[Rfam]
RNA sequence: CCUUCCGAGGAGCGUUGCAGCGUGCACCCGAUGGGCGGUGCCGUGAGGCUCGGAAGGGCAGCAGACCGUGGUCACGCGGCCUCGCUCCUAGGCAACGACGCUCACCCACG
Numbered sequence: 001c002c003u004u005c006c007g008a009g010g011a012g013c014g015u016u017g018c019a020g021c022g023u024g025c026a027c028c029c030g031a032u033g034g035g036c037g038g039u040g041c042c043g044u045g046a047g048g049c050u051c052g053g054a055a056g057g058g059c060a061g062c063a064g065a066c067c068g069u070g071g072u073c074a075c076g077c078g079g080c081c082u083c084g085c086u087c088c089u090a091g092g093c094a095a096c097g098a099c100g101c102u103c104a105c106c107c108a109c110g
Base pairs, nucleotide, nucleotide: 002056003055004054005053006052007051008050021043022042024041025040026039027038